A member of the RNA family "c-di-GMP-I-GGC riboswitch aptamer" from Pelotomaculum schinkii, 165 nucleotides long. The match comes from Rfam's covariance-model search (59 bits). The source organism's lineage runs through Bacteria, Bacillati, Clostridia, Eubacteriales and Pelotomaculum.
RNA sequence: CAUGAUAAAGGCAAACCUCCUGAAAGGGAGGGACGCAAAGCUACGGGCCUAAAACUAAGAAUUCACGGGCUACAACGGGCUACAAGCGCAGGAUUUUUUGGCAGUUCGUAUGCUGCCAUACCUGCGAGCUCCGAAUGAUUGGUCACGGCGGCUGGGUUGCCAGGG
Numbered sequence: 001c002a003u004g005a006u007a008a009a010g011g012c013a014a015a016c017c018u019c020c021u022g023a024a025a026g027g028g029a030g031g032g033a034c035g036c037a038a039a040g041c042u043a044c045g046g047g048c049c050u051a052a053a054a055c056u057a058a059g060a061a062u063u064c065a066c067g068g069g070c071u072a073c074a075a076c077g078g079g080c081u082a083c084a085a086g087c088g089c090a091g092g093a094u095u096u097u098u099u100g101g102c103a104g105u106u107c108g109u110a111u112g113c114u115g116c117c118a119u120a121c122c123u124g125c126g127a128g129c130u131c132c133g134a135a136u137g138a139u140u141g142g143u144c145a146c147g148g149c150g151g152c153u154g155g156g157u158u159g160c161c162a163g164g165g
Stems, first nucleotide, its partner, number of pairs: 001165001003162002011036002016031006034151001039158004044154003047149003